Description:
Rfam assigns this 132-nucleotide RNA from Rhodococcus oxybenzonivorans to the family "ALIL pseudoknot". NCBI's taxonomy places the organism under Bacteria, Bacillati, Mycobacteriales, Nocardiaceae, Rhodococcus.

RNA sequence: AACGUCUUUCUUCGCGCGGGAGUGCGACCCGCCACGCAAGUGAUCUGCCGGUUCAUCGCCGAACACCGCGAUCAGUUCGGGGUCGUACCGAUCUGCCGGGUGCUCACCGAGCACGGGUGCACGAUCGCCCCG
Dot-bracket structure: ...............(((((.......))))).............................................(((((......((.((.............................)).)))))))
Numbered sequence: 001a002a003c004g005u006c007u008u009u010c011u012u013c014g015c016g017c018g019g020g021a022g023u024g025c026g027a028c029c030c031g032c033c034a035c036g037c038a039a040g041u042g043a044u045c046u047g048c049c050g051g052u053u054c055a056u057c058g059c060c061g062a063a064c065a066c067c068g069c070g071a072u073c074a075g076u077u078c079g080g081g082g083u084c085g086u087a088c089c090g091a092u093c094u095g096c097c098g099g100g101u102g103c104u105c106a107c108c109g110a111g112c113a114c115g116g117g118u119g120c121a122c123g124a125u126c127g128c129c130c131c132g
Stems, first nucleotide, its partner, number of pairs: 016032005078132005089127002092124002